[Rfam]
RNA sequence: CAAAGAAUCCAAACCACUUUCAAACUUAUCUCUUGGAAGCGCUUUUAAGCCUCCCUCUCCUCAAUCAACAUGUCUCCCUGCUCCUGCAACUGCUGCUCCGGCAACUGCUCUAGCUGCUCCUGCAGCUCUUGCAGCGUUGGUCUCC
Numbered sequence: 001c002a003a004a005g006a007a008u009c010c011a012a013a014c015c016a017c018u019u020u021c022a023a024a025c026u027u028a029u030c031u032c033u034u035g036g037a038a039g040c041g042c043u044u045u046u047a048a049g050c051c052u053c054c055c056u057c058u059c060c061u062c063a064a065u066c067a068a069c070a071u072g073u074c075u076c077c078c079u080g081c082u083c084c085u086g087c088a089a090c091u092g093c094u095g096c097u098c099c100g101g102c103a104a105c106u107g108c109u110c111u112a113g114c115u116g117c118u119c120c121u122g123c124a125g126c127u128c129u130u131g132c133a134g135c136g137u138u139g140g141u142c143u144c145c
Stems, first nucleotide, its partner, number of pairs: 079103004086096003107132002116123002

Overview: A member of the RNA family "A. fumigatus sRNA Afu_254" from Aspergillus aculeatus, 145 nucleotides long. Rfam classes the family as a small RNA. Pairs were carried over by alignment from the consensus structure, which was predicted with WAR. A search with the family's covariance model found it, with a score of 88 bits.